[Rfam]
RNA sequence: CCCCCAAGGGGAAGCGAAGACCCUAUAGAGCUUUACUGCAGGCUGUCACUGAGACGUGGUCGCGGAUGUGCAGCAUAGGUAGGAGUCGUUACCGAGGCCCAUGCGCCAGCAUGGCGCCCAGACAACCGUGAAAUACUACCCGUCUGUGACUGCGACUCUCACUCCGGGAGGAGAACACUGGUAGCCGGGCAGUUUGACUGGGGCGGUACGCGCUCGAGAAGCGAUCGAGCGCGCCCGAAGAUCACCUCAGCCGGGUCGGAAAUCCGGCGUCGAGCGCAAGAGCACACGGUGGUCUGACAGUGAUUUUCCCAACGAGAAUCGCUGACGCGAAAGCGUGGUCUAGCGAACAGAUGCAGCUCCGGCAUGGGGCUCAUCUAUGACAGAAAAGCUACCUUAGGGAUAACAGAGUCGUCACUCGCAAGAGCACAUAUCGACCGAGUGGCUUGCUACCUCGAUGUCGGUUCCCUCCAUCCUGCCCGUGCAGACGCGGGCAAGGGUGAGGUUGUUCGCCUAUUAAAGGAGGUCGUGAGCUGGGUUUAGACCGUCGUGAGACAGGUCGGCUGCUAUCUAUUGGGGGUGUGA
Number, nucleotide and partner (000 for none) at each position: 001c577002c576003c575004c574005c573006a572007a571008g000009g000010g569011g568012a567013a000014g564015c563016g000017a000018a000019g000020a000021c000022c398023c397024u396025a395026u000027a394028g393029a390030g389031c388032u387033u386034u000035a193036c192037u191038g190039c000040a000041g000042g185043c184044u183045g182046u181047c180048a179049c000050u000051g158052a157053g156054a000055c154056g153057u152058g151059g150060u149061c148062g147063c146064g145065g144066a143067u142068g141069u000070g000071c000072a000073g000074c000075a000076u000077a000078g140079g139080u138081a137082g136083g000084a000085g123086u122087c121088g000089u000090u000091a000092c000093c000094g000095a000096g000097g000098c000099c000100c113101a112102u111103g110104c109105g000106c000107c000108a000109g104110c103111a102112u101113g100114g000115c000116g000117c000118c000119c000120a000121g087122a086123c085124a000125a000126c000127c000128g000129u000130g000131a000132a000133a000134u000135a000136c082137u081138a080139c079140c078141c068142g067143u066144c065145u064146g063147u062148g061149a060150c059151u058152g057153c056154g055155a000156c053157u052158c051159u000160c000161a000162c173163u172164c171165c170166g000167g000168g000169a000170g165171g164172a163173g162174a000175a000176c000177a000178c000179u048180g047181g046182u045183a044184g043185c042186c000187g000188g000189g000190c038191a037192g036193u035194u000195u000196g209197a207198c206199u205200g000201g000202g000203g000204c000205g199206g198207u197208a000209c196210g232211c231212g230213c229214u228215c227216g000217a000218g000219a000220a000221g000222c000223g000224a000225u000226c000227g215228a214229g213230c212231g211232c210233g000234c000235c338236c337237g000238a000239a000240g000241a293242u292243c291244a290245c289246c288247u273248c272249a000250g268251c267252c266253g265254g264255g263256u000257c000258g000259g000260a000261a000262a000263u255264c254265c253266g252267g251268c250269g000270u000271c000272g248273a247274g283275c282276g000277c000278a000279a000280g000281a000282g275283c274284a000285c000286a000287c000288g246289g245290u244291g243292g242293u241294c000295u000296g000297a000298c324299a323300g322301u321302g320303a319304u318305u317306u316307u000308c000309c000310c000311a000312a000313c000314g000315a000316g306317a305318a304319u303320c302321g301322c300323u299324g298325a000326c335327g000328c333329g000330a000331a000332a000333g328334c000335g326336u000337g236338g235339u000340c000341u000342a000343g000344c000345g000346a000347a000348c000349a376350g375351a374352u373353g372354c000355a371356g370357c369358u368359c367360c000361g000362g000363c000364a000365u000366g000367g359368g358369g357370c356371u355372c353373a352374u351375c350376u349377a000378u000379g000380a000381c000382a000383g000384a000385a000386a033387a032388g031389c030390u029391a000392c000393c028394u027395u025396a024397g023398g022399g000400a000401u000402a000403a000404c000405a000406g000407a448408g447409u446410c000411g445412u442413c441414a440415c439416u438417c437418g436419c000420a000421a000422g432423a431424g000425c000426a000427c000428a000429u000430a000431u423432c422433g000434a000435c000436c418437g417438a416439g415440u414441g413442g412443c000444u000445u411446g409447c408448u407449a000450c000451c000452u000453c000454g000455a000456u000457g000458u000459c534460g532461g531462u530463u529464c526465c523466c522467u521468c520469c519470a000471u000472c497473c496474u000475g000476c491477c490478c489479g488480u487481g000482c000483a000484g000485a000486c000487g480488c479489g478490g477491g476492c000493a000494a000495g000496g473497g472498u000499g000500a512501g511502g510503u509504u000505g000506u000507u000508c000509g503510c502511c501512u500513a000514u000515u000516a000517a000518a000519g469520g468521a467522g466523g465524u000525c000526g464527u000528g000529a463530g462531c461532u460533g000534g459535g000536u000537u000538u000539a000540g558541a557542c556543c555544g553545u552546c551547g000548u000549g000550a000551g546552a545553c544554a000555g543556g542557u541558c540559g000560g000561c000562u000563g015564c014565u000566a000567u012568c011569u010570a000571u007572u006573g005574g004575g003576g002577g001578u000579g000580u000581g000582a000
Record summary: This 582-nucleotide part of an RNA from uncultured archaeon A07HR60 belongs to the Rfam family "Archaeal large subunit ribosomal RNA". The match comes from Rfam's covariance-model search (2720 bits). The family's consensus secondary structure is taken from published work. The family has 91 seed sequences and 2,955 matches in Rfam 15.1.